[Rfam]
RNA: SAM (S-adenosyl methionine) riboswitch aptamer
RNA sequence: GGUCAUGAGUGUCAGCGACAAGCCCUGGCUUGCUGACCGGCAACCCUCGCACCGCGGUGGGGUGCCCCAGGUGACGACCCGGCCGAUGACCCAUCGGCAAGCGCGAGGC
Numbered sequence: 001g002g003u004c005a006u007g008a009g010u011g012u013c014a015g016c017g018a019c020a021a022g023c024c025c026u027g028g029c030u031u032g033c034u035g036a037c038c039g040g041c042a043a044c045c046c047u048c049g050c051a052c053c054g055c056g057g058u059g060g061g062g063u064g065c066c067c068c069a070g071g072u073g074a075c076g077a078c079c080c081g082g083c084c085g086a087u088g089a090c091c092c093a094u095c096g097g098c099a100a101g102c103g104c105g106a107g108g109c
Stems, first nucleotide, its partner, number of pairs: 001079004009038001011037006021030002039066003044062003048057001082098007